Background: This 139-nucleotide sequence from Gasterosteus aculeatus belongs to the Rfam family "Small nucleolar RNA SNORD10". Its family is annotated with nucleolus and RNA processing in the Gene Ontology.

RNA sequence: UGUAUAAUGAUGAUAACCAUGCGUGUCAGCUGACUCUGUAAACCUCUGCUGUGUUGUUGCACUGGUCGGCGUUUUGUCAGCCUGAGUAUUCAGCACAGCAGGGCUACAGAGACAUGAUCAUACUUCACUUCUGAAUACA
Numbered sequence: 001u002g003u004a005u006a007a008u009g010a011u012g013a014u015a016a017c018c019a020u021g022c023g024u025g026u027c028a029g030c031u032g033a034c035u036c037u038g039u040a041a042a043c044c045u046c047u048g049c050u051g052u053g054u055u056g057u058u059g060c061a062c063u064g065g066u067c068g069g070c071g072u073u074u075u076g077u078c079a080g081c082c083u084g085a086g087u088a089u090u091c092a093g094c095a096c097a098g099c100a101g102g103g104c105u106a107c108a109g110a111g112a113c114a115u116g117a118u119c120a121u122a123c124u125u126c127a128c129u130u131c132u133g134a135a136u137a138c139a
Base pairs, nucleotide, nucleotide: 001139002138003137004136044103045102046101047100048099049098050097051096052095